[Rfam]
RNA: A. fumigatus snoRNA Afu_263
RNA sequence: UUCAAUGAUGAUCACCAUAUUCAAUGCAUAGUUCAACUGAAGAUCUUCGGAUUGCUGAACGACAACCAUAUACCAUCUUUCACCUUUGUCUGAAA
Dot-bracket structure: .....(.(((.....))))...........(((((......((((....))))..)))))...................................